[Rfam]
Rfam assigns this 185-nucleotide RNA from Rotaria sp. Silwood1 to the family "U2 spliceosomal RNA". Rfam links the family to the GO terms pre-mRNA branch point binding, U2 snRNP and mRNA branch site recognition. Pairs were carried over by alignment from the consensus structure, which is taken from published work. Rfam describes the family as follows. U2 is a small nuclear RNA (snRNA) component of the spliceosome (involved in pre-mRNA splicing).

RNA sequence: AAUGCUUUGCAGUCUUUUAGGCUAAGAUCAAAAUAUAGGAUCUGUUCUCGUCGGCGUUCAUUUCACCAAGAUCGGCCUCUUUCGAACGCAUUUUUCGUCUUUGGCUAGAAUCAACGGAGUUAACUCGGACCUUUUGCCACGGAUCGUUUCGACACUGUAGUGCCAUUGAGUUCGAUCCACUUCCA
Numbered sequence: 001a002a003u004g005c006u007u008u009g010c011a012g013u014c015u016u017u018u019a020g021g022c023u024a025a026g027a028u029c030a031a032a033a034u035a036u037a038g039g040a041u042c043u044g045u046u047c048u049c050g051u052c053g054g055c056g057u058u059c060a061u062u063u064c065a066c067c068a069a070g071a072u073c074g075g076c077c078u079c080u081u082u083c084g085a086a087c088g089c090a091u092u093u094u095u096c097g098u099c100u101u102u103g104g105c106u107a108g109a110a111u112c113a114a115c116g117g118a119g120u121u122a123a124c125u126c127g128g129a130c131c132u133u134u135u136g137c138c139a140c141g142g143a144u145c146g147u148u149u150c151g152a153c154a155c156u157g158u159a160g161u162g163c164c165a166u167u168g169a170g171u172u173c174g175a176u177c178c179a180c181u182u183c184c185a
Stems, first nucleotide, its partner, number of pairs: 007027002011023004049056002058074001060072004103138003107134003117126003141178006148170005

On this family, see Zwieb, Nucleic Acids Res 1997: "The uRNA database".
Clan: U2 clan.